This 89-nucleotide RNA from Eucalyptus grandis belongs to the Rfam family "mir-395 microRNA precursor family".

RNA sequence: GCGACACCAGGAGUUCCCCCAAACACUUCAUUGGGAAGUGCUUUCAUAGAAAGUCCCAUUGAAGUGUUCGGGGGAACUCUUGGGGACAC
Number, nucleotide and partner (000 for none) at each position: 001g000002c000003g000004a000005c085006a000007c083008c082009a081010g000011g079012a078013g077014u076015u075016c074017c073018c072019c071020c070021a000022a068023a067024c066025a065026c064027u063028u062029c061030a060031u000032u058033g057034g056035g055036a000037a000038g000039u000040g000041c000042u000043u000044u000045c000046a000047u000048a000049g000050a000051a000052a000053g000054u000055c035056c034057c033058a032059u000060u030061g029062a028063a027064g026065u025066g024067u023068u022069c000070g020071g019072g018073g017074g016075a015076a014077c013078u012079c011080u000081u009082g008083g007084g000085g005086a000087c000088a000089c000
Pairs were carried over by alignment from the consensus structure, which was predicted with PFOLD. On this family, see Jones-Rhoades and Bartel, Mol Cell 2004: "Computational Identification of Plant MicroRNAs and Their Targets, Including a Stress-Induced miRNA". Rfam describes the family as follows. mir-395 was identified in both Arabidopsis thaliana and Oryza sativa computationally and was later experimentally verified. mir-395 is thought to target mRNAs coding for ATP sulphurylases. The mature sequence is excised from the 3' arm of the hairpin. Rfam links the family to the GO terms RISC complex and miRNA-mediated post-transcriptional gene silencing. The match comes from Rfam's covariance-model search (64 bits).